[Rfam]
RNA sequence: UAUUCGUUAUCACUGGUCACAUUGAAAUUGUGAAAUAAGCACCUACAACAUAGACUUUACAACACUUCAUGUUUCAUAUCAUGGGGUGUUUUUCU
Number, nucleotide and partner (000 for none) at each position: 001u000002a000003u000004u000005c000006g046007u045008u000009a000010u000011c000012a000013c039014u038015g000016g000017u033018c032019a031020c030021a029022u000023u000024g000025a000026a000027a000028u000029u021030g020031u019032g018033a017034a000035a000036u000037a000038a014039g013040c000041a000042c000043c000044u000045a007046c006047a000048a000049c000050a000051u000052a000053g000054a000055c000056u000057u000058u000059a000060c000061a090062a089063c088064a087065c086066u085067u084068c083069a082070u081071g080072u000073u000074u000075c000076a000077u000078a000079u000080c071081a070082u069083g068084g067085g066086g065087u064088g063089u062090u061091u000092u000093u000094c000095u000
Rfam assigns this 95-nucleotide RNA sequence from Streptococcus pneumoniae to the family "Streptococcus sRNA SpF11". The family's consensus secondary structure was predicted with mfold. The organism belongs to Streptococcus pneumoniae, within Bacteria. A reference for the family is Mann et al. (2012), "Control of virulence by small RNAs in Streptococcus pneumoniae", PLoS Pathog.